[Rfam]
RNA: Y RNA
RNA sequence: GGCUGGUCUGAUGGUAGUGGGUUAUCAGAAUGUAUUAAUUGGUGUCACUAAAGUUGAUAUACAGCCCCCCACUGCUAAAGCCACUGUUGACUGGCUUUAA
Numbered sequence: 001g002g003c004u005g006g007u008c009u010g011a012u013g014g015u016a017g018u019g020g021g022u023u024a025u026c027a028g029a030a031u032g033u034a035u036u037a038a039u040u041g042g043u044g045u046c047a048c049u050a051a052a053g054u055u056g057a058u059a060u061a062c063a064g065c066c067c068c069c070c071a072c073u074g075c076u077a078a079a080g081c082c083a084c085u086g087u088u089g090a091c092u093g094g095c096u097u098u099a100a
Stems, first nucleotide, its partner, number of pairs: 001096008010088002015077001016073006027058001030055001